[Rfam]
RNA sequence: UUCCGCUGCCCUCCUUGGGCGUUUCCUCCCUAGACUUGGGCCGCCUCGUUUCACGAGCGGCCCUUUUUCUUGGCCGAU
Numbered sequence: 001u002u003c004c005g006c007u008g009c010c011c012u013c014c015u016u017g018g019g020c021g022u023u024u025c026c027u028c029c030c031u032a033g034a035c036u037u038g039g040g041c042c043g044c045c046u047c048g049u050u051u052c053a054c055g056a057g058c059g060g061c062c063c064u065u066u067u068u069c070u071u072g073g074c075c076g077a078u
Stems, first nucleotide, its partner, number of pairs: 008020004038063006045057003